[Rfam]
RNA: MAT2A 3'UTR stem loop D
RNA sequence: UCUAGGGUGUGGCAUGAGUACAGAGAAGCUAUCAUCUCAGA
Numbered sequence: 001u002c003u004a005g006g007g008u009g010u011g012g013c014a015u016g017a018g019u020a021c022a023g024a025g026a027a028g029c030u031a032u033c034a035u036c037u038c039a040g041a
Stems, first nucleotide, its partner, number of pairs: 001041003005037004009032005